[Rfam]
RNA: 6S / SsrS RNA
Organism: Idiomarina loihiensis
RNA sequence: GGUUUCCUGGGGUGUUUGCCAGCAGGCUUAUGUCCCUGAGCCGAUGCUUGUAUUAAAAGGGGAUCACUGGCCUGCCAUGAGCAAGCCCGGCUUGAACCGGGAAGCCUACGGCAGAUACCAUUUGCUCCCCGCCUUGAACCAAUGGGUUCAAGGGCUACAGCCAGCAGCGGCACCUUGGGAAGCCA
Numbered sequence: 001g002g003u004u005u006c007c008u009g010g011g012g013u014g015u016u017u018g019c020c021a022g023c024a025g026g027c028u029u030a031u032g033u034c035c036c037u038g039a040g041c042c043g044a045u046g047c048u049u050g051u052a053u054u055a056a057a058a059g060g061g062g063a064u065c066a067c068u069g070g071c072c073u074g075c076c077a078u079g080a081g082c083a084a085g086c087c088c089g090g091c092u093u094g095a096a097c098c099g100g101g102a103a104g105c106c107u108a109c110g111g112c113a114g115a116u117a118c119c120a121u122u123u124g125c126u127c128c129c130c131g132c133c134u135u136g137a138a139c140c141a142a143u144g145g146g147u148u149c150a151a152g153g154g155c156u157a158c159a160g161c162c163a164g165c166a167g168c169g170g171c172a173c174c175u176u177g178g179g180a181a182g183c184c185a
Stems, first nucleotide, its partner, number of pairs: 002183014017169003032155004037150006059130003063126001065124002072114004081105002086101005